The record is a 111-nucleotide sequence from Myotis myotis, which matches "Small nucleolar RNA SNORA28" in Rfam. The base pairs follow the family's consensus structure, which was predicted with RNAfold. Rfam's curators write: ACA28 is a member of the H/ACA class of snoRNA that guide the sites of modification of uridines to pseudouridines. Rfam links the family to the GO terms nucleolus and RNA processing. The family is grouped with related families in Rfam's "SNORA28 clan". The match comes from Rfam's covariance-model search (68 bits). The source organism's lineage runs through Eukaryota, Opisthokonta, Eutheria, Laurasiatheria and Myotis.
RNA sequence: AAAAUACAUUUUAUUGUGUUAAAAAUAUUUUUUUCAUUGCUACGGCAACAAAGUCUAAUCUAUUCUGGAGCUCUCCUCUAUGAGACAAGCCGUUAUAUAGACUUAGACAGU
Number, nucleotide and partner (000 for none) at each position: 001a000002a000003a020004a019005u018006a017007c016008a015009u000010u000011u000012u000013a000014u000015u008016g007017u006018g005019u004020u003021a000022a000023a000024a000025a000026u000027a000028u000029u000030u000031u000032u000033u000034u000035c000036a000037u000038u000039g000040c000041u000042a000043c000044g000045g000046c000047a000048a000049c000050a000051a104052a103053g102054u101055c100056u099057a098058a000059u000060c000061u097062a096063u095064u000065c000066u092067g091068g090069a000070g000071c000072u085073c084074u083075c082076c000077u000078c000079u000080a000081u000082g075083a074084g073085a072086c000087a000088a000089g000090c068091c067092g066093u000094u000095a063096u062097a061098u057099a056100g055101a054102c053103u052104u051105a000106g000107a000108c000109a000110g000111u000